[Rfam]
RNA sequence: CUGCUAUGAUUCUGAAGUUCGGUUUUAGCCGAACUAGGUGGCUUACACCAGUGUUUCGGACAGCGGUUCGAUUCCGCUCAGCUCCAUCACGAGGGGCUGCAAUGGUUUCGACGGGGCAUGAGGAAGGUUACUGAAGCCUGCUCGGCAAGAGCAAAAUCGUAUCUGCGAACAACAUCGUUCGUUUCUCCCGUCAAGCUGCUCUUGUAGCAGCCUGACCUUAGUUAAGGAGAUGGGGUAAGUCAGCCUUAUAACCCAAAUGACUCAUGGGACCUGGAAGGGUCC
Numbered sequence: 001c002u003g004c005u006a007u008g009a010u011u012c013u014g015a016a017g018u019u020c021g022g023u024u025u026u027a028g029c030c031g032a033a034c035u036a037g038g039u040g041g042c043u044u045a046c047a048c049c050a051g052u053g054u055u056u057c058g059g060a061c062a063g064c065g066g067u068u069c070g071a072u073u074c075c076g077c078u079c080a081g082c083u084c085c086a087u088c089a090c091g092a093g094g095g096g097c098u099g100c101a102a103u104g105g106u107u108u109c110g111a112c113g114g115g116g117c118a119u120g121a122g123g124a125a126g127g128u129u130a131c132u133g134a135a136g137c138c139u140g141c142u143c144g145g146c147a148a149g150a151g152c153a154a155a156a157u158c159g160u161a162u163c164u165g166c167g168a169a170c171a172a173c174a175u176c177g178u179u180c181g182u183u184u185c186u187c188c189c190g191u192c193a194a195g196c197u198g199c200u201c202u203u204g205u206a207g208c209a210g211c212c213u214g215a216c217c218u219u220a221g222u223u224a225a226g227g228a229g230a231u232g233g234g235g236u237a238a239g240u241c242a243g244c245c246u247u248a249u250a251a252c253c254c255a256a257a258u259g260a261c262u263c264a265u266g267g268g269a270c271c272u273g274g275a276a277g278g279g280u281c282c
Stems, first nucleotide, its partner, number of pairs: 017034007037132003041128004048123002051119008062078005079099007139153005194213002197209004226254002230249007267282006
RNA: Cyanobacteria transfer-messenger RNA